[Rfam]
RNA sequence: AGGUCGGAAGAGGUGCGGUGGGACGCGGCUCAAGAAUUGACCGGACAUAUCCGCUCUUAGGGGUGUGCAUCACGGCCCCGGUGAUGUCACG
Numbered sequence: 001a002g003g004u005c006g007g008a009a010g011a012g013g014u015g016c017g018g019u020g021g022g023a024c025g026c027g028g029c030u031c032a033a034g035a036a037u038u039g040a041c042c043g044g045a046c047a048u049a050u051c052c053g054c055u056c057u058u059a060g061g062g063g064u065g066u067g068c069a070u071c072a073c074g075g076c077c078c079c080g081g082u083g084a085u086g087u088c089a090c091g
Stems, first nucleotide, its partner, number of pairs: 002042004010031003014027004064091004069085005
RNA: Rhodo-rpoB RNA
Organism: Sulfitobacter sp. SK011